Rfam assigns this 102-nucleotide RNA sequence from Callithrix jacchus to the family "Y RNA". From the family's description: Y RNAs are components of the Ro ribonucleoprotein particle (Ro RNP), in association with Ro60 and La proteins. By type it is a non-coding RNA gene. The literature on the family includes a 2000 paper in Nucleic Acids Res by Teunissen et al., "Conserved features of Y RNAs: a comparison of experimentally derived secondary structures".
[Rfam]
RNA sequence: GGCUGGUCUGAGCGCAGUGAUGUUUACAACUAAUUGAUCACAACCAGUUACAGAUUUCUUUGUUCCUUCUCUAAUCCCAUUGCUUCACUUGAAUAACCUUAA
Numbered sequence: 001g002g003c004u005g006g007u008c009u010g011a012g013c014g015c016a017g018u019g020a021u022g023u024u025u026a027c028a029a030c031u032a033a034u035u036g037a038u039c040a041c042a043a044c045c046a047g048u049u050a051c052a053g054a055u056u057u058c059u060u061u062g063u064u065c066c067u068u069c070u071c072u073a074a075u076c077c078c079a080u081u082g083c084u085u086c087a088c089u090u091g092a093a094u095a096a097c098c099u100u101a102a
Base pairs, nucleotide, nucleotide: 001098002097004095005094007092008091010090011089014086016081017080018079019078022076028064029063030062032060033059